[Rfam]
RNA: Purine riboswitch aptamer
RNA sequence: AUAAAAUUGAAGAUUGUAUUUCGUAUAUCUUUGGGAAUAGGGCCCGAAAGUUUCUACCAGCUAGCCGCAAACUAGCUGACUACGAAAUAGUAGUUUUUAGGG
Numbered sequence: 001a002u003a004a005a006a007u008u009g010a011a012g013a014u015u016g017u018a019u020u021u022c023g024u025a026u027a028u029c030u031u032u033g034g035g036a037a038u039a040g041g042g043c044c045c046g047a048a049a050g051u052u053u054c055u056a057c058c059a060g061c062u063a064g065c066c067g068c069a070a071a072c073u074a075g076c077u078g079a080c081u082a083c084g085a086a087a088u089a090g091u092a093g094u095u096u097u098u099a100g101g102g
Base pairs, nucleotide, nucleotide: 018088019087020086021085022084023083024082025081030048031047032046033045034044035043058078059077060076061075062074063073064072